[Rfam]
Nucleotides: 072
Base pairs, nucleotide, nucleotide: 008020010018011017038057039056040055041054042053043052044051045050
Number, partner (000 for none) and nucleotide at each position: 001000u002000g003000u004000c005000g006000c007000u008020g009000c010018u011017u012000u013000u014000c015000u016000u017011g018010g019000a020008c021000g022000u023000u024000u025000c026000c027000u028000c029000c030000c031000u032000a033000a034000a035000c036000u037000u038057g039056g040055c041054g042053g043052u044051g045050c046000c047000u048000c049000g050045g051044c052043a053042c054041c055040g056039c057038c058000u059000u060000u061000u062000u063000u064000u065000c066000g067000u068000c069000c070000a071000g072000g
Shown here is a 72-nucleotide sequence from Acidisoma silvae, a member of the family "Makes More Granules Regulator RNA (mmgR)". The organism belongs to Acidisoma, within Bacteria. Rfam describes the family as follows. SuhB later renamed mmgR (makes more granules regulator) was a putative non-coding RNA found multiple times in the Agrobacterium tumefaciens genome and related alpha-proteobacteria. Other non-coding RNAs uncovered in the same analysis include: speF, ybhL, metA, and serC.Several studies inSinorhizobium meliloti showed that suhB element is indeed a non-coding RNA:firstly it was detected on Northern blot and called Sm8RNA, secondly in an RNAseq study referred to as SmelC689.The mutant phenotype's (strain lacking the small RNA) cytoplasm contains higher content of polyhydroxybutyrate (PBH)storage granules than wild type strain. The sRNA is required to limit the PBH intracellular accumulation when the nitrogen-fixing Sinorhizobium meliloti is under condition of surplus carbon in relation to nitrogen. It has been renamed to mmgR. Further study confirmed that mmgR fine-tunes the regulation of PBH storage.Northern blot confirmed the expression of the sRNA in other rhizobia species. MmgR homologues were found in most alpha-proteobacteria. For this family Rfam cites "Evidence for a second class of S-adenosylmethionine riboswitches and other regulatory RNA motifs in alpha-proteobacteria" (Corbino et al., Genome Biol, 2005).